[Rfam]
RNA sequence: AGCUUUUAUUAGGUAUCAGCAGUUGUCUUUCAUUAGGAAGAAGAGUGAGGAAGGUACCAAAGGGUGUAGCAGACUUUUAAACUUCAGAAAGUUUUGAGUGCUUGAACUUACUUUUUCAUUUUACUUCGUCCUCCAAGGAGUGCAAUCACUUGGUGUCCUACUUCUUUUAAGCGAAAGAACAGCGAACAGGCAAC
Dot-bracket structure: .(((..(((...)))..)))........(((.((.((..((((...((.(.(((................(((.((.............)).)))(.(.(......).).)..)))).))...))))....)).)).)))........((((.(..(.(.(((.....)))...).)...).....))))....
RNA: Connexin-43 internal ribosome entry site (IRES)